[Rfam]
RNA: mraW RNA
RNA sequence: GGCUGACCGUGCAUCGCGGCCUCUGUCCGAGCCGGCCCUGGCGUACUUCCCCAACGCCAGGUCCGCGCGCUCGGACAGAGACCCCGGUGCAGGGUGUGGAGGUU
Number, nucleotide and partner (000 for none) at each position: 001g000002g000003c000004u000005g000006a000007c000008c000009g000010u091011g090012c089013a088014u087015c086016g085017c000018g083019g082020c000021c080022u079023c078024u077025g076026u075027c074028c073029g072030a071031g070032c067033c065034g064035g063036c000037c061038c060039u059040g058041g057042c056043g055044u054045a000046c000047u000048u000049c000050c000051c000052c000053a000054a044055c043056g042057c041058c040059a039060g038061g037062u000063c035064c034065g033066c000067g032068c000069g000070c031071u030072c029073g028074g027075a026076c025077a024078g023079a022080g021081a000082c019083c018084c000085c016086g015087g014088u013089g012090c011091a010092g000093g000094g000095u000096g000097u000098g000099g000100a000101g000102g000103u000104u000